The record is a 74-nucleotide RNA from Cnephaeus nilssonii, which matches "mir-9193 microRNA precursor family" in Rfam. The base pairs follow the family's consensus structure, which was predicted with RNAalifold. It scores 73 bits against the family's covariance model. Taxonomically the source falls in Cnephaeus (Eukaryota, Craniata, Boreoeutheria, Vespertilionidae).
[Rfam]
Nucleotides: 074
Stems, first nucleotide, its partner, number of pairs: 003072002006069001009066002012063002015060006023052003027048002030045003034041001
Number, partner (000 for none) and nucleotide at each position: 001000u002000g003072u004071g005000g006069g007000g008000g009066g010065g011000g012063g013062g014000u015060g016059u017058c018057c019056c020055u021000c022000a023052g024051c025050c026000u027048g028047g029000a030045u031044u032043g033000c034041g035000a036000g037000a038000g039000g040000g041034c042000a043032c044031a045030g046000g047028c048027c049000a050025g051024g052023c053000c054000a055020a056019g057018g058017g059016a060015c061000c062013c063012c064000a065010c066009c067000a068000g069006u070000g071004c072003a073000c074000a